[Rfam]
RNA sequence: CCCUUAUCUUUUAAAAGUUUCAAGUUGGUCCCUUAUCUUUAUUUUAGGUUUCAAUUUGGUCCCUUCCGUCAAUUUUUUAACUAUUUCCGUUAAAUUUGGACACAUGGCAAACUAAUUUGGACACAUGGCACACUUGGAUAGAUGACACGUGUCCAAUUUUAACGGUAACAGUAAAAAAAUUGACGGAAGGGACCAAUUUGAAACCUAAAAUAAAGAUAAGGGACCAACUUGAAACUUUUAAAAGAUAAGGGA
Numbered sequence: 001c002c003c004u005u006a007u008c009u010u011u012u013a014a015a016a017g018u019u020u021c022a023a024g025u026u027g028g029u030c031c032c033u034u035a036u037c038u039u040u041a042u043u044u045u046a047g048g049u050u051u052c053a054a055u056u057u058g059g060u061c062c063c064u065u066c067c068g069u070c071a072a073u074u075u076u077u078u079a080a081c082u083a084u085u086u087c088c089g090u091u092a093a094a095u096u097u098g099g100a101c102a103c104a105u106g107g108c109a110a111a112c113u114a115a116u117u118u119g120g121a122c123a124c125a126u127g128g129c130a131c132a133c134u135u136g137g138a139u140a141g142a143u144g145a146c147a148c149g150u151g152u153c154c155a156a157u158u159u160u161a162a163c164g165g166u167a168a169c170a171g172u173a174a175a176a177a178a179a180u181u182g183a184c185g186g187a188a189g190g191g192a193c194c195a196a197u198u199u200g201a202a203a204c205c206u207a208a209a210a211u212a213a214a215g216a217u218a219a220g221g222g223a224c225c226a227a228c229u230u231g232a233a234a235c236u237u238u239u240a241a242a243a244g245a246u247a248a249g250g251g252a
Stems, first nucleotide, its partner, number of pairs: 002250007023229003027225003031221013045207003
RNA: MIR2655 microRNA precursor family
Organism: Trifolium subterraneum